[Rfam]
A member of the RNA family "mir-877 microRNA precursor family" from Hordeum vulgare, 82 nucleotides long. The literature on the family includes a 2006 paper in Genome Res by Berezikov et al., "Many novel mammalian microRNA candidates identified by extensive cloning and RAKE analysis". Gene Ontology terms of the family: RISC complex and miRNA-mediated post-transcriptional gene silencing. The family's consensus secondary structure was predicted with RNAalifold. The match comes from Rfam's covariance-model search (47 bits). Rfam 15.1 lists 186 matches to the family in 115 species. NCBI's taxonomy places the organism under Eukaryota, Viridiplantae, Tracheophyta, commelinids, Hordeum vulgare.
RNA sequence: GAGGAGGAGGAUGAGGAGGAGGAGGAGGAGGAGGAGAAGGCCCCUGGCCUUCUCCUCCUCCUCCUCCUCCUCCUCCUCCUUC
Numbered sequence: 001g002a003g004g005a006g007g008a009g010g011a012u013g014a015g016g017a018g019g020a021g022g023a024g025g026a027g028g029a030g031g032a033g034g035a036g037a038a039g040g041c042c043c044c045u046g047g048c049c050u051u052c053u054c055c056u057c058c059u060c061c062u063c064c065u066c067c068u069c070c071u072c073c074u075c076c077u078c079c080u081u082c
Base pairs, nucleotide, nucleotide: 001078002077003076004075005074006073010072011071013069015067016066017065018064019063020062021061022060023059024058026056034054035053036052037051038050039049040048042047